[Rfam]
A member of the RNA family "Glycine riboswitch aptamer" from Paenibacillus dendritiformis, 111 nucleotides long.

RNA sequence: CUCUGGAGAGCAUCCGCUUCAAGCGGGUCACCCAAGGGGAAACUUAUGGGCCGGCUUCAGCAGACGGAAGCCGGAAGAUCAUGAGGUAACUCUCAGGUACACAGGACAGAG
Numbered sequence: 001c002u003c004u005g006g007a008g009a010g011c012a013u014c015c016g017c018u019u020c021a022a023g024c025g026g027g028u029c030a031c032c033c034a035a036g037g038g039g040a041a042a043c044u045u046a047u048g049g050g051c052c053g054g055c056u057u058c059a060g061c062a063g064a065c066g067g068a069a070g071c072c073g074g075a076a077g078a079u080c081a082u083g084a085g086g087u088a089a090c091u092c093u094c095a096g097g098u099a100c101a102c103a104g105g106a107c108a109g110a111g
Stems, first nucleotide, its partner, number of pairs: 001111005012028004030098003034093001037092003043085007
Rfam links the family to the GO term glycine biosynthetic process.